[Rfam]
RNA sequence: UUUUGCGAUGUGUUCCUAAUAUGCAUUUAGAAAUAUAUUGGGAACAUUUUGCAUGCAU
Numbered sequence: 001u002u003u004u005g006c007g008a009u010g011u012g013u014u015c016c017u018a019a020u021a022u023g024c025a026u027u028u029a030g031a032a033a034u035a036u037a038u039u040g041g042g043a044a045c046a047u048u049u050u051g052c053a054u055g056c057a058u
Stems, first nucleotide, its partner, number of pairs: 004053005010047014
Description: The record is a 58-nucleotide RNA from Tupaia belangeri, which matches "mir-450 microRNA precursor family" in Rfam. Pairs were carried over by alignment from the consensus structure, which was predicted with RNAalifold. The family has 36 seed sequences and 374 matches in Rfam 15.1. The organism belongs to Tupaia belangeri, within Eukaryota.